Notes
tRNA: an 88-nucleotide RNA sequence from Helicobacter canis.
[Rfam]
RNA sequence: GGACAGAUGGGUGAGUGGCUGAAACCACACCCCUGCUAAGGGUGCAGAUCUUAACCGGGUCUCGAGGGUUCAAAUCCCUCUCUGUCCG
Numbered sequence: 001g002g003a004c005a006g007a008u009g010g011g012u013g014a015g016u017g018g019c020u021g022a023a024a025c026c027a028c029a030c031c032c033c034u035g036c037u038a039a040g041g042g043u044g045c046a047g048a049u050c051u052u053a054a055c056c057g058g059g060u061c062u063c064g065a066g067g068g069u070u071c072a073a074a075u076c077c078c079u080c081u082c083u084g085u086c087c088g
Stems, first nucleotide, its partner, number of pairs: 001087007010026003028044005064080005
The family's consensus secondary structure is taken from published work. It scores 56 bits against the family's covariance model. Taxonomically the source falls in Helicobacter canis (Bacteria, Campylobacterota, Campylobacterales, Helicobacter).